[Rfam]
RNA sequence: GGUCUGAUGCCAUGUCCCCGGUAGUGCAUAUAUGCAGUGACCGGGGAUGCUAUGAUUAGAUCUAUUGUAUUAUUUUCACAUUGUGAUAGGAACUGGAUUGAGAUUACAACAUUCUAUGGGGCCAAUUUUUGUGACUUGACGA
Numbered sequence: 001g002g003u004c005u006g007a008u009g010c011c012a013u014g015u016c017c018c019c020g021g022u023a024g025u026g027c028a029u030a031u032a033u034g035c036a037g038u039g040a041c042c043g044g045g046g047a048u049g050c051u052a053u054g055a056u057u058a059g060a061u062c063u064a065u066u067g068u069a070u071u072a073u074u075u076u077c078a079c080a081u082u083g084u085g086a087u088a089g090g091a092a093c094u095g096g097a098u099u100g101a102g103a104u105u106a107c108a109a110c111a112u113u114c115u116a117u118g119g120g121g122c123c124a125a126u127u128u129u130u131g132u133g134a135c136u137u138g139a140c141g142a
Stems, first nucleotide, its partner, number of pairs: 002061007009053001013049006020042003024035003076134005089123002095115003099111001